[Rfam]
Nucleotides: 059
Base pairs, nucleotide, nucleotide: 002013003012004011025051026050027049028048029047030046032044033043034042035041
Number, partner (000 for none) and nucleotide at each position: 001000u002013g003012g004011u005000a006000g007000a008000u009000g010000c011004a012003c013002c014000c015000u016000g017000a018000u019000g020000u021000c022000u023000g024000a025051c026050u027049c028048c029047u030046a031000a032044g033043c034042u035041c036000u037000u038000c039000g040000c041035g042034a043033g044032c045000c046030u047029a048028g049027g050026a051025g052000u053000u054000u055000u056000u057000u058000u059000u